[Rfam]
RNA sequence: UAACCGUCGAUGUAAGUCGACGCUGAACGGGCAGGAGUCAGCAGACGCCAUAGUACACAAGUGUGUACACACUUGUGGAAGGGC
Numbered sequence: 001u002a003a004c005c006g007u008c009g010a011u012g013u014a015a016g017u018c019g020a021c022g023c024u025g026a027a028c029g030g031g032c033a034g035g036a037g038u039c040a041g042c043a044g045a046c047g048c049c050a051u052a053g054u055a056c057a058c059a060a061g062u063g064u065g066u067a068c069a070c071a072c073u074u075g076u077g078g079a080a081g082g083g084c
Stems, first nucleotide, its partner, number of pairs: 001025002005022007037046003047084003056077006

A member of the RNA family "Group II catalytic intron D1-D4-1" from Sulfoacidibacillus thermotolerans, 84 nucleotides long. The source organism's lineage runs through Bacteria, Bacillota, Bacilli, Alicyclobacillaceae and Sulfoacidibacillus. The match comes from Rfam's covariance-model search (74 bits). Group II introns are found in rRNA, tRNA and mRNA of organelles in fungi, plants and protists, and also in mRNA in bacteria.